[Rfam]
RNA: Moco-II RNA
Organism: Syntrophotalea carbinolica
RNA sequence: UGCGCUUAUUUCGUCCUCCGUACUACGGACCCAACGAAACCCGC
Numbered sequence: 001u002g003c004g005c006u007u008a009u010u011u012c013g014u015c016c017u018c019c020g021u022a023c024u025a026c027g028g029a030c031c032c033a034a035c036g037a038a039a040c041c042c043g044c
Stems, first nucleotide, its partner, number of pairs: 011037004017029005